[Rfam]
This 85-nucleotide sequence belongs to the Rfam family "skipping-rope RNA". The sequence is in the family's curated seed alignment.
Nucleotides: 085
Stems, first nucleotide, its partner, number of pairs: 001085001003083006011033005023071005035052001036046004057077005
Number, partner (000 for none) and nucleotide at each position: 001085a002000u003083u004082g005081c006080c007079c008078g009000a010000g011033g012032u013031g014030g015029g016000a017000a018000a019000a020000u021000a022000c023071g024070u025069u026068g027067c028000a029015c030014c031013c032012a033011c034000a035052c036046a037045c038044c039043c040000u041000a042000u043039g044038g045037g046036u047000u048000a049000a050000a051000a052035g053000a054000g055000a056000u057077c058076c059075u060074g061073c062000a063000g064000a065000a066000u067027g068026c069025g070024a071023c072000g073061g074060c075059a076058g077057g078008c079007g080006g081005g082004c083003a084000u085001u